Annotation: The family of this 139-nucleotide RNA sequence from Thermanaeromonas sp. C210 is "c-di-AMP riboswitch aptamer (ydaO/yuaA leader)". Lineage of the source: Bacteria > Bacillati > Clostridia > Neomoorellaceae > Thermanaeromonas. About the family: This family represents a conserved RNA structure found upstream of the ydaO and yuaA genes in Bacillus subtilis and related genes in other bacteria.
RNA sequence: AUAAAGGGAACGCUGAAUCCGUAGGGGAGCGGGGGAACCAAACUUCGGGGUGAAUCCUGUAUACCGGACGGAUACAGGUAGGGUUAGCUUUCGACCCGAACCCGUCAGCUAACCUCGUAAGCGUGGAAAGUGCGAAAGC
Numbered sequence: 001a002u003a004a005a006g007g008g009a010a011c012g013c014u015g016a017a018u019c020c021g022u023a024g025g026g027g028a029g030c031g032g033g034g035g036a037a038c039c040a041a042a043c044u045u046c047g048g049g050g051u052g053a054a055u056c057c058u059g060u061a062u063a064c065c066g067g068a069c070g071g072a073u074a075c076a077g078g079u080a081g082g083g084u085u086a087g088c089u090u091u092c093g094a095c096c097c098g099a100a101c102c103c104g105u106c107a108g109c110u111a112a113c114c115u116c117g118u119a120a121g122c123g124u125g126g127a128a129a130g131u132g133c134g135a136a137a138g139c
Base pairs, nucleotide, nucleotide: 011123012122013121014120018028019027020026029118030117031116032115033114034113039047048103049102050101056078057077058076059075060074061073062072081097082096083095084094